RNA sequence: CCCCCGCCCGGACGAAGACCGUCGCCAGUCGUCGGCCUUCAGCAGAUCGGUGGGGUUUUCGUUCGAGUGGGGG
Numbered sequence: 001c002c003c004c005c006g007c008c009c010g011g012a013c014g015a016a017g018a019c020c021g022u023c024g025c026c027a028g029u030c031g032u033c034g035g036c037c038u039u040c041a042g043c044a045g046a047u048c049g050g051u052g053g054g055g056u057u058u059u060c061g062u063u064c065g066a067g068u069g070g071g072g073g
Stems, first nucleotide, its partner, number of pairs: 003071005009065007017057004023052002026049001028047003
The family of this 73-nucleotide RNA from Branchiostoma lanceolatum is "mir-278 microRNA precursor family".
The literature on the family includes a 2007 paper in Genome Res by Stark et al., "Systematic discovery and characterization of fly microRNAs using 12 Drosophila genomes".
A search with the family's covariance model found it, with a score of 58 bits.
The family's consensus secondary structure was predicted with RNAalifold.
Taxonomically the source falls in Branchiostoma (Eukaryota, Opisthokonta, Bilateria, Chordata).